Shown here is a 107-nucleotide RNA from Cocos nucifera, a member of the family "Plastid-psbA-1 3UTR RNA".
NCBI's taxonomy places the organism under Eukaryota, Tracheophyta, commelinids, Attaleinae, Cocos.
Rfam's curators write: Plastid psbA-1 is a non-coding RNA (ncRNA) present in plastids. It was identified in inverted repeat sequences in the 3 prime untranslate region (3UTR) of photosystem II quinone-binding protein (psbA).
Its Rfam clan is "Plastid-psbA 3UTR RNA clan".
RNA sequence: UCAAAGUUCCAUCUACAAAUGGAUAAGACUUUUGUCUUAGUGUAUAUGAAUCAUUGAAGGAAUGGAGUAAUACCCAACCAAAACAAGAUAUUGGGUAUUGCUCCAUU
Numbered sequence: 001u002c003a004a005a006g007u008u009c010c011a012u013c014u015a016c017a018a019a020u021g022g023a024u025a026a027g028a029c030u031u032u033u034g035u036c037u038u039a040g041u042g043u044a045u046a047u048g049a050a051u052c053a054u055u056g057a058a059g060g061a062a063u064g065g066a067g068u069a070a071u072a073c074c075c076a077a078c079c080a081a082a083a084c085a086a087g088a089u090a091u092u093g094g095g096u097a098u099u100g101c102u103c104c105a106u107u
Base pairs, nucleotide, nucleotide: 008023009022010021011020012019061107062106063105064104065103066102067101068100069099070098071097072096073095075093076092077091